Rfam assigns this 62-nucleotide RNA from Propithecus coquereli to the family "U7 small nuclear RNA". The organism belongs to Propithecus, within Eukaryota.

RNA sequence: AAUUGUUACAGCUCUUAAUAGAAUUUGUUUAGCAGGCUUUUUGGUUGCUGGAAAAUACCCCA
Numbered sequence: 001a002a003u004u005g006u007u008a009c010a011g012c013u014c015u016u017a018a019u020a021g022a023a024u025u026u027g028u029u030u031a032g033c034a035g036g037c038u039u040u041u042u043g044g045u046u047g048c049u050g051g052a053a054a055a056u057a058c059c060c061c062a
Stems, first nucleotide, its partner, number of pairs: 035059002038055005043049002
Rfam 15.1 lists 10,439 matches to the family in 569 species. Rfam's curators write: Animal histone pre-mRNAs are spliced by a different mechanism than nuclear pre-mRNAs and self-splicing introns.